This 94-nucleotide RNA sequence from Paenibacillus apis belongs to the Rfam family "c-di-GMP-I riboswitch aptamer". A reference for the family is Sudarsan et al. (2008), "Riboswitches in Eubacteria Sense the Second Messenger Cyclic Di-GMP", Science. The organism belongs to Paenibacillus, within Bacteria. A search with the family's covariance model found it, with a score of 68 bits. From the family's description: GEMM was predicted in a large-scale screen for bacterial structured RNA regulatory elements.
RNA sequence: ACCUCUAUUCGGCAAAACUAUCGAAAGGUAGUGACGCAAAGCUAUAGGGACUACUUCCUCCAAUCUGUAGAGGAAAUGUCAGCCAGUUGCCCAU
Numbered sequence: 001a002c003c004u005c006u007a008u009u010c011g012g013c014a015a016a017a018c019u020a021u022c023g024a025a026a027g028g029u030a031g032u033g034a035c036g037c038a039a040a041g042c043u044a045u046a047g048g049g050a051c052u053a054c055u056u057c058c059u060c061c062a063a064u065c066u067g068u069a070g071a072g073g074a075a076a077u078g079u080c081a082g083c084c085a086g087u088u089g090c091c092c093a094u
Stems, first nucleotide, its partner, number of pairs: 012037002017032006040088004047084002049080003056074004